[Rfam]
RNA sequence: UCCUAGUGAAGAAACAUUCACAUGACUUACCUUCUGUCCUGGUCCCAGAGAAUAUAAAUGUGAACCCAUUGGAGCAGCCUUGGAGAGAAGAUGAGUUUAUUCUAAAGGAUACUAACUAUCUGAGGGAU
Numbered sequence: 001u002c003c004u005a006g007u008g009a010a011g012a013a014a015c016a017u018u019c020a021c022a023u024g025a026c027u028u029a030c031c032u033u034c035u036g037u038c039c040u041g042g043u044c045c046c047a048g049a050g051a052a053u054a055u056a057a058a059u060g061u062g063a064a065c066c067c068a069u070u071g072g073a074g075c076a077g078c079c080u081u082g083g084a085g086a087g088a089a090g091a092u093g094a095g096u097u098u099a100u101u102c103u104a105a106a107g108g109a110u111a112c113u114a115a116c117u118a119u120c121u122g123a124g125g126g127a128u
Stems, first nucleotide, its partner, number of pairs: 001127004
Annotation: A member of the RNA family "Small nucleolar RNA SNORD22" from Sus scrofa, 128 nucleotides long. The family's consensus secondary structure was predicted with PFOLD. By type it is a C/D-box small nucleolar RNA. Its family is annotated with RNA processing and nucleolus in the Gene Ontology.